This 91-nucleotide RNA from Taxus chinensis belongs to the Rfam family "Small nucleolar RNA Z103". Rfam classes the family as a C/D-box small nucleolar RNA. The organism belongs to Taxus, within Eukaryota. A search with the family's covariance model found it, with a score of 60 bits. Rfam links the family to the GO terms nucleolus and RNA processing.

[Rfam]
RNA sequence: AUGGAGAUGAUGACUCUUUCCCCGAAUGAUCGACACUGAUUCCAAUCUAUUGCACAAUCUCUUUGGAGAUAAGCCAGAUUAGCUGAUCCAU
Numbered sequence: 001a002u003g004g005a006g007a008u009g010a011u012g013a014c015u016c017u018u019u020c021c022c023c024g025a026a027u028g029a030u031c032g033a034c035a036c037u038g039a040u041u042c043c044a045a046u047c048u049a050u051u052g053c054a055c056a057a058u059c060u061c062u063u064u065g066g067a068g069a070u071a072a073g074c075c076a077g078a079u080u081a082g083c084u085g086a087u088c089c090a091u
Base pairs, nucleotide, nucleotide: 001091002090003089004088005087